[Rfam]
RNA sequence: GGCGUAUUUUGCGAUGGCGGAGCUCGACCGCCGGUCCAAGACAUGAUCGCGUUCAUCGACGAUCACCGCGAGGUCCACGGGGUCGAGCCGAUCUGCAAGGUGCUGCCGAUCGCCCCC
Number, nucleotide and partner (000 for none) at each position: 001g000002g000003c000004g000005u000006a000007u000008u000009u000010u000011g000012c000013g000014a000015u000016g032017g031018c030019g029020g028021a000022g000023c000024u000025c000026g000027a000028c020029c019030g018031c017032c016033g000034g000035u000036c000037c000038a000039a000040g000041a000042c000043a000044u000045g000046a000047u000048c000049g000050c000051g000052u000053u000054c000055a000056u000057c000058g000059a000060c000061g000062a000063u000064c000065a000066c000067c000068g000069c000070g000071a000072g000073g000074u000075c000076c000077a000078c000079g116080g115081g114082g113083u000084c000085g000086a000087g000088c000089c112090g111091a000092u109093c108094u000095g106096c105097a104098a000099g000100g000101u000102g000103c000104u097105g096106c095107c000108g093109a092110u000111c090112g089113c082114c081115c080116c079117c000

The record is a 117-nucleotide RNA from Blastochloris viridis, which matches "ALIL pseudoknot" in Rfam. Taxonomically the source falls in Blastochloris (Bacteria, Pseudomonadati, Alphaproteobacteria, Blastochloridaceae). By type it is a cis-regulatory element. A reference for the family is Mazauric et al. (2008), "Apical loop-internal loop RNA pseudoknots: a new type of stimulator of -1 translational frameshifting in bacteria", J Biol Chem.